[Rfam]
This 174-nucleotide RNA sequence from Clostridium magnum belongs to the Rfam family "Lysine riboswitch aptamer". Rfam's curators write: Riboswitches are metabolite binding domains within certain messenger RNAs that serve as precision sensors for their corresponding targets. Lineage of the source: Bacteria > Bacillati > Clostridia > Eubacteriales > Clostridium magnum. The match comes from Rfam's covariance-model search (88 bits). Gene Ontology term of the family: lysine biosynthetic process.
RNA sequence: AUGUGAUACAGAGGCCGCGGUUGUCAUUAGUAUUGUGUGUUUUCUUAAAUGAACAUUCAAGAAAGGGUCACUCGCCGAAAUGCAUGAAAUAGAUCAUGUGUUGGGAUUAUACUGAAUAAGUAUAGUACUGUCUUCAGAAAGUUGCCCGAUUUUCUAAAGAAGUGCUUAUCAUGU
Numbered sequence: 001a002u003g004u005g006a007u008a009c010a011g012a013g014g015c016c017g018c019g020g021u022u023g024u025c026a027u028u029a030g031u032a033u034u035g036u037g038u039g040u041u042u043u044c045u046u047a048a049a050u051g052a053a054c055a056u057u058c059a060a061g062a063a064a065g066g067g068u069c070a071c072u073c074g075c076c077g078a079a080a081u082g083c084a085u086g087a088a089a090u091a092g093a094u095c096a097u098g099u100g101u102u103g104g105g106a107u108u109a110u111a112c113u114g115a116a117u118a119a120g121u122a123u124a125g126u127a128c129u130g131u132c133u134u135c136a137g138a139a140a141g142u143u144g145c146c147c148g149a150u151u152u153u154c155u156a157a158a159g160a161a162g163u164g165c166u167u168a169u170c171a172u173g174u
Stems, first nucleotide, its partner, number of pairs: 006169003010166002017075004022070002025067001033060003037056004079102009103129002106126008131160004136155006